[Rfam]
A member of the RNA family "Bacterial RNase P class A" from an Olavius algarvensis Delta 1 endosymbiont, 391 nucleotides long.
Its family is annotated with dimeric ribonuclease P complex, ribonuclease P activity and tRNA processing in the Gene Ontology.
The base pairs follow the family's consensus structure, which is taken from published work.
It is annotated as a ribozyme.

RNA sequence: GGAGUAGCCCAAACGAUCGCCGGGUUUGCCAUGCAGAUCCGGAGGAAAGUCCGAACACCGCAGGGCAGGGUGCUUCAUAACGUGAAGUCGUGGCAACACGAAGGAAAGUGCAACAGAAAGUAUACCGCCCGGCAUCCAACCGACCGGUUUGAUGCCGGGUAAGGGUGAAAUGGUGCGGUAAGAGCGCACCAGUUCCCCGGGUGACCGGGGAAGCUCGGUAAACCCCACCCGGUGCAAGACCAAAUAGGGAAGCGCAUGAGGGCGGCCCGUCCCAGCUUCCGGGUAGGUCGCAAGAGGUGUCGGGCAACCGGCAUCCAUAGAUGAAUGAUCGUUGCCCGGUUCAGGGUAACCGGAACCGGGAACAGAAUUCGGCUUACGGGCUGCUCCGGCC
Numbered sequence: 001g002g003a004g005u006a007g008c009c010c011a012a013a014c015g016a017u018c019g020c021c022g023g024g025u026u027u028g029c030c031a032u033g034c035a036g037a038u039c040c041g042g043a044g045g046a047a048a049g050u051c052c053g054a055a056c057a058c059c060g061c062a063g064g065g066c067a068g069g070g071u072g073c074u075u076c077a078u079a080a081c082g083u084g085a086a087g088u089c090g091u092g093g094c095a096a097c098a099c100g101a102a103g104g105a106a107a108g109u110g111c112a113a114c115a116g117a118a119a120g121u122a123u124a125c126c127g128c129c130c131g132g133c134a135u136c137c138a139a140c141c142g143a144c145c146g147g148u149u150u151g152a153u154g155c156c157g158g159g160u161a162a163g164g165g166u167g168a169a170a171u172g173g174u175g176c177g178g179u180a181a182g183a184g185c186g187c188a189c190c191a192g193u194u195c196c197c198c199g200g201g202u203g204a205c206c207g208g209g210g211a212a213g214c215u216c217g218g219u220a221a222a223c224c225c226c227a228c229c230c231g232g233u234g235c236a237a238g239a240c241c242a243a244a245u246a247g248g249g250a251a252g253c254g255c256a257u258g259a260g261g262g263c264g265g266c267c268c269g270u271c272c273c274a275g276c277u278u279c280c281g282g283g284u285a286g287g288u289c290g291c292a293a294g295a296g297g298u299g300u301c302g303g304g305c306a307a308c309c310g311g312c313a314u315c316c317a318u319a320g321a322u323g324a325a326u327g328a329u330c331g332u333u334g335c336c337c338g339g340u341u342c343a344g345g346g347u348a349a350c351c352g353g354a355a356c357c358g359g360g361a362a363c364a365g366a367a368u369u370c371g372g373c374u375u376a377c378g379g380g381c382u383g384c385u386c387c388g389g390c391c
Stems, first nucleotide, its partner, number of pairs: 001387010012333007020042009047375003051372005056234004063268004068230005073087005088102001089100004103225002108223002110219002125164002127160009172190006192214001193212008238289004248280006260272004296315008